[Rfam]
RNA sequence: CAAUAAGCUCAAGGGGUCCUUGUAGAAGCGUGCUCGUCGCGACCCCUGCCAGCCCUUUUCAUGGCUGCAAUUCUACA
Numbered sequence: 001c002a003a004u005a006a007g008c009u010c011a012a013g014g015g016g017u018c019c020u021u022g023u024a025g026a027a028g029c030g031u032g033c034u035c036g037u038c039g040c041g042a043c044c045c046c047u048g049c050c051a052g053c054c055c056u057u058u059u060c061a062u063g064g065c066u067g068c069a070a071u072u073c074u075a076c077a
Base pairs, nucleotide, nucleotide: 013046014045015044016043017042018041021077022076023075024074025073026072027071028040029039030038050067051066052065053064054063056061

This 77-nucleotide RNA from Parnassius apollo belongs to the Rfam family "Mammalian CPEB3 ribozyme".
The organism belongs to Parnassius, within Eukaryota.
Rfam describes the family as follows. The mammalian CPEB3 ribozyme is a self cleaving RNA located in the second intron of the CPEB3 gene which belongs to a family of genes regulating messenger RNA polyadenylation.